The family of this 105-nucleotide RNA sequence from Stackebrandtia endophytica is "TPP riboswitch aptamer (THI element)".
[Rfam]
RNA sequence: AGCACGCGACAGGGGAGCCCUUCGGGGCUGAGAGUGCGGAACCAUCCGCAGACCCUCGAACCUGAUCCGGUUAGUACCGGUGUAGGAAGUCGAACCGCACAUCUC
Numbered sequence: 001a002g003c004a005c006g007c008g009a010c011a012g013g014g015g016a017g018c019c020c021u022u023c024g025g026g027g028c029u030g031a032g033a034g035u036g037c038g039g040a041a042c043c044a045u046c047c048g049c050a051g052a053c054c055c056u057c058g059a060a061c062c063u064g065a066u067c068c069g070g071u072u073a074g075u076a077c078c079g080g081u082g083u084a085g086g087a088a089g090u091c092g093a094a095c096c097g098c099a100c101a102u103c104u105c
Base pairs, nucleotide, nucleotide: 007092008091009090010089011056012055013054014053017028018027019026020025035050036049037048038047039046061086062085063084064083067080068079069078070077
Taxonomically the source falls in Stackebrandtia (Bacteria, Actinomycetota, Actinomycetes, Glycomycetales).